[Rfam]
RNA sequence: ACCGAUAAAGGCAAACCUUGAGCGAUCAGGGGGCGCAAAGUAAAGGGUCUUAGUCUUACAGGGAAGUAAAGGCAAGAAAAGAUAGCCUUACUGCCGAAG
Dot-bracket structure: ..((......((...((((((....))))))..[))..((((.((((((((...........................))))).])))))))..))...
Notes: The record is a 99-nucleotide sequence from Candidatus Brocadia sapporoensis, which matches "c-di-GMP-I-GGC riboswitch aptamer" in Rfam. A search with the family's covariance model found it, with a score of 64 bits. The literature on the family includes a 2012 paper in Biochemistry by Smith et al., "Structural and biochemical characterization of linear dinucleotide analogues bound to the c-di-GMP-I aptamer". The source organism's lineage runs through Bacteria, Candidatus Brocadiia, Candidatus Brocadiales, Candidatus Brocadiaceae and Candidatus Brocadia.